Clostridiales-1 RNA: a 170-nucleotide RNA from Blautia sp. OF03-15BH.
RNA sequence: UGCUGCCAGGGGCAAAAAGUCAAAAAGCCGUUCAUGCUUGCAUGAUAAGGCUUUUGAACUUGGAACCCACCAAACAUAAAAAAGCAGCGAUUUACGCAGUAAAUCAGCGGAUUUUGAAUGUUUGGCAAAUUGCGGGAGCUGCUUUGCAGCGGAGCAAUUCGUAAGCAUCC
Numbered sequence: 001u002g003c004u005g006c007c008a009g010g011g012g013c014a015a016a017a018a019g020u021c022a023a024a025a026a027g028c029c030g031u032u033c034a035u036g037c038u039u040g041c042a043u044g045a046u047a048a049g050g051c052u053u054u055u056g057a058a059c060u061u062g063g064a065a066c067c068c069a070c071c072a073a074a075c076a077u078a079a080a081a082a083a084g085c086a087g088c089g090a091u092u093u094a095c096g097c098a099g100u101a102a103a104u105c106a107g108c109g110g111a112u113u114u115u116g117a118a119u120g121u122u123u124g125g126c127a128a129a130u131u132g133c134g135g136g137a138g139c140u141g142c143u144u145u146g147c148a149g150c151g152g153a154g155c156a157a158u159u160c161g162u163a164a165g166c167a168u169c170c
Stems, first nucleotide, its partner, number of pairs: 002169001004167003010067002017061004023055007031047001032045005070125008080115004087108002089105007128159006138150004